This 100-nucleotide RNA from Streptomyces clavuligerus belongs to the Rfam family "che1 RNA".
The family's RNA type in Rfam is small RNA.
RNA sequence: CGGGCAGGGGGGUUCCUGUCGAACGGCAGGGCCUGUCCGCUUCGGGUUGUGUGCGACACGUCAGGCGCGACCCGUGGUUGUCGCUCGGGGGUGAUCGCCG
Numbered sequence: 001c002g003g004g005c006a007g008g009g010g011g012g013u014u015c016c017u018g019u020c021g022a023a024c025g026g027c028a029g030g031g032c033c034u035g036u037c038c039g040c041u042u043c044g045g046g047u048u049g050u051g052u053g054c055g056a057c058a059c060g061u062c063a064g065g066c067g068c069g070a071c072c073c074g075u076g077g078u079u080g081u082c083g084c085u086c087g088g089g090g091g092u093g094a095u096c097g098c099c100g
Stems, first nucleotide, its partner, number of pairs: 001039008014031007045072008
Rfam's curators put it in the seed alignment. The organism belongs to Streptomyces, within Bacteria.